The family of this 887-nucleotide RNA is "MISL RNA".
RNA sequence: AGAUAUACCCCAAACUUCGGUUUGGGAAAAGGUCGGGAUGAGCUAACGUUCCCGGCCCCUACUGUGAGUUGCCUUUUAAGGCAGCGAGAUUAUCUUCGGAUAAUUAUAUGCGGCAGGCACAUGUCACCGGCUUCAACGAAAAGGUUCGUGCCUUUUCGGUUUAACACGUAAUUGAAGUCUGGCGGUGAGCGGCAACUUAAAGUGAAGCAAUAAAAAUGCACACUAGAGUAAGAACCAGCUGCAAACCGAGUGAUGCUCCAAGUUCCGGUUCGGAACAAAAGAGCAAACACAGUCGGUCACCGACCGACAGUUGCUACUGUGAGUUAGUGCGGAGUAAAUAACGUAGUUCGACAGUGUGAACGAAAAAAAUGCUGUUAGAUCGUAGGGGUGUCGCAAUCAAUACGGGAAAAAGAACUGCGGCUUCGCGGAGUGAGCGAACCAAGUGAGAGGCGCCCGGAUACGGGCAGUGAUCAUGGAAGCGCGAUAAAAUCCGAAGCGCGGGAGGCUGUAGAAAGGCCGUCCGCUUGAGACAAUAAAAGCAACUUGAGGGUUAAGAGACAAGACCCGUUGCCUAAGGCAAACGAUCGAUGACGAAAGAAGUCGAUGCUGACCUUGGGCUGCAGGAACGGAAGAGGAGAUCUCAAUCACUACCGAUCCGUGUUCGGACUGUGAGUGUCGGCAGACAAGCGCAAAACCGGGCAGAGAAGUCUCACCCAACAAAGAACCAGCGGUUACGCUGGAAUCAGGUUCUGCUGUGGGACCGAAACGUAUUGCAAUCGUUCUUGCGGUAUGACGCAGCGUCGGGGAACUGGCAGCCAAUAAUCACUCGACGGGUGAUGAGGGCGCCCAAUGCCAGUGAAUCGAGGAAAGAGAGCGUGGCGAGCUCC
Numbered sequence: 001a002g003a004u005a006u007a008c009c010c011c012a013a014a015c016u017u018c019g020g021u022u023u024g025g026g027a028a029a030a031g032g033u034c035g036g037g038a039u040g041a042g043c044u045a046a047c048g049u050u051c052c053c054g055g056c057c058c059c060u061a062c063u064g065u066g067a068g069u070u071g072c073c074u075u076u077u078a079a080g081g082c083a084g085c086g087a088g089a090u091u092a093u094c095u096u097c098g099g100a101u102a103a104u105u106a107u108a109u110g111c112g113g114c115a116g117g118c119a120c121a122u123g124u125c126a127c128c129g130g131c132u133u134c135a136a137c138g139a140a141a142a143g144g145u146u147c148g149u150g151c152c153u154u155u156u157c158g159g160u161u162u163a164a165c166a167c168g169u170a171a172u173u174g175a176a177g178u179c180u181g182g183c184g185g186u187g188a189g190c191g192g193c194a195a196c197u198u199a200a201a202g203u204g205a206a207g208c209a210a211u212a213a214a215a216a217u218g219c220a221c222a223c224u225a226g227a228g229u230a231a232g233a234a235c236c237a238g239c240u241g242c243a244a245a246c247c248g249a250g251u252g253a254u255g256c257u258c259c260a261a262g263u264u265c266c267g268g269u270u271c272g273g274a275a276c277a278a279a280a281g282a283g284c285a286a287a288c289a290c291a292g293u294c295g296g297u298c299a300c301c302g303a304c305c306g307a308c309a310g311u312u313g314c315u316a317c318u319g320u321g322a323g324u325u326a327g328u329g330c331g332g333a334g335u336a337a338a339u340a341a342c343g344u345a346g347u348u349c350g351a352c353a354g355u356g357u358g359a360a361c362g363a364a365a366a367a368a369a370u371g372c373u374g375u376u377a378g379a380u381c382g383u384a385g386g387g388g389u390g391u392c393g394c395a396a397u398c399a400a401u402a403c404g405g406g407a408a409a410a411a412g413a414a415c416u417g418c419g420g421c422u423u424c425g426c427g428g429a430g431u432g433a434g435c436g437a438a439c440c441a442a443g444u445g446a447g448a449g450g451c452g453c454c455c456g457g458a459u460a461c462g463g464g465c466a467g468u469g470a471u472c473a474u475g476g477a478a479g480c481g482c483g484a485u486a487a488a489a490u491c492c493g494a495a496g497c498g499c500g501g502g503a504g505g506c507u508g509u510a511g512a513a514a515g516g517c518c519g520u521c522c523g524c525u526u527g528a529g530a531c532a533a534u535a536a537a538a539g540c541a542a543c544u545u546g547a548g549g550g551u552u553a554a555g556a557g558a559c560a561a562g563a564c565c566c567g568u569u570g571c572c573u574a575a576g577g578c579a580a581a582c583g584a585u586c587g588a589u590g591a592c593g594a595a596a597g598a599a600g601u602c603g604a605u606g607c608u609g610a611c612c613u614u615g616g617g618c619u620g621c622a623g624g625a626a627c628g629g630a631a632g633a634g635g636a637g638a639u640c641u642c643a644a645u646c647a648c649u650a651c652c653g654a655u656c657c658g659u660g661u662u663c664g665g666a667c668u669g670u671g672a673g674u675g676u677c678g679g680c681a682g683a684c685a686a687g688c689g690c691a692a693a694a695c696c697g698g699g700c701a702g703a704g705a706a707g708u709c710u711c712a713c714c715c716a717a718c719a720a721a722g723a724a725c726c727a728g729c730g731g732u733u734a735c736g737c738u739g740g741a742a743u744c745a746g747g748u749u750c751u752g753c754u755g756u757g758g759g760a761c762c763g764a765a766a767c768g769u770a771u772u773g774c775a776a777u778c779g780u781u782c783u784u785g786c787g788g789u790a791u792g793a794c795g796c797a798g799c800g801u802c803g804g805g806g807a808a809c810u811g812g813c814a815g816c817c818a819a820u821a822a823u824c825a826c827u828c829g830a831c832g833g834g835u836g837a838u839g840a841g842g843g844c845g846c847c848c849a850a851u852g853c854c855a856g857u858g859a860a861u862c863g864a865g866g867a868a869a870g871a872g873a874g875c876g877u878g879g880c881g882a883g884c885u886c887c
Base pairs, nucleotide, nucleotide: 008026009025010024012023013022014021015020031057032056033055034054035053036052037051038050088105089104090103091102092101093100129179130178131177132176133175134174135173140155141154142153143152144151147168148167149166150165183248184247185246186245189242190241191240192239193238232271233270234269235268236267256283257282258281262276263275264274288321289320290319291318292317294306295305296304297303309544310543311542312541313540314539350376351375352374353373354372355371356370380405381404382403383402384401426493427492428491429490434482435481436480504518505517506516507515548715549714550713555711556710557709558708571617572616573615574614575613576612577611584605585604586603587602588601589600625655627653628652629651631649632648634646660700661699662698663697664696665695668691669690670689671688674685675684676683677682722743725740726739727738728737729736730735744763746762747761748760749759752799753798754797755796767792768791769790770789771788772787773786774785775784776783808857809856810855811854812853813852814851815844816843822838823837824836825835826834827833872886873885874884
It is one of the family's seed sequences.